[Rfam]
About this RNA: U2 spliceosomal RNA: a 187-nucleotide RNA sequence from Trichosporon asahii.

RNA sequence: AUCCUCUCUGGCCUCUUUUGGCUAAGAUCAUGUGUAGUAUCUGUUCUUAACAUAGUGAGAUAUGUUAUAGCCCCACGGGGCUUCAAUCUCCCUUUAUCUUUCCUCGCCCGAGGUGCCUCUGCGGCUUGCUGCACGCAUCCUCACGAUGUCGCUGGCCUUACACUGCCGCCUUCUGAUGUCAGGGUAC
Numbered sequence: 001a002u003c004c005u006c007u008c009u010g011g012c013c014u015c016u017u018u019u020g021g022c023u024a025a026g027a028u029c030a031u032g033u034g035u036a037g038u039a040u041c042u043g044u045u046c047u048u049a050a051c052a053u054a055g056u057g058a059g060a061u062a063u064g065u066u067a068u069a070g071c072c073c074c075a076c077g078g079g080g081c082u083u084c085a086a087u088c089u090c091c092c093u094u095u096a097u098c099u100u101u102c103c104u105c106g107c108c109c110g111a112g113g114u115g116c117c118u119c120u121g122c123g124g125c126u127u128g129c130u131g132c133a134c135g136c137a138u139c140c141u142c143a144c145g146a147u148g149u150c151g152c153u154g155g156c157c158u159u160a161c162a163c164u165g166c167c168g169c170c171u172u173c174u175g176a177u178g179u180c181a182g183g184g185u186a187c
Stems, first nucleotide, its partner, number of pairs: 007027003010023004048067006069082005110142004114137003121132004145180006151173001154170003

The match comes from Rfam's covariance-model search (108 bits).
Rfam classes the family as a spliceosomal small nuclear RNA.
Rfam 15.1 lists 71,512 matches to the family in 2,642 species.
The literature on the family includes a 1997 paper in Nucleic Acids Res by Zwieb, "The uRNA database".
U2 is a small nuclear RNA (snRNA) component of the spliceosome (involved in pre-mRNA splicing).